[Rfam]
RNA sequence: GCCGCUUUAGCUCAGUUGGUAGAGCAACCGCCUUGUAAGCGGUAGGUCCACAGUUCGAGUCUGUGAUGCGGCA
Numbered sequence: 001g002c003c004g005c006u007u008u009a010g011c012u013c014a015g016u017u018g019g020u021a022g023a024g025c026a027a028c029c030g031c032c033u034u035g036u037a038a039g040c041g042g043u044a045g046g047u048c049c050a051c052a053g054u055u056c057g058a059g060u061c062u063g064u065g066a067u068g069c070g071g072c073a
Stems, first nucleotide, its partner, number of pairs: 001072005007066001010025004027043005049065005

This 73-nucleotide RNA from Solilutibacter silvestris belongs to the Rfam family "tRNA". NCBI's taxonomy places the organism under Bacteria, Pseudomonadati, Pseudomonadota, Lysobacterales, Solilutibacter. The family's RNA type in Rfam is transfer RNA.